[Rfam]
raiA-hairpin RNA: a 48-nucleotide RNA sequence from Streptomyces somaliensis.
RNA sequence: CGCCAAGUCCGGGACUCCGGUGUUCACCGGGGUCUGGUGCAAAAGGGA
Numbered sequence: 001c002g003c004c005a006a007g008u009c010c011g012g013g014a015c016u017c018c019g020g021u022g023u024u025c026a027c028c029g030g031g032g033u034c035u036g037g038u039g040c041a042a043a044a045g046g047g048a
Stems, first nucleotide, its partner, number of pairs: 013034008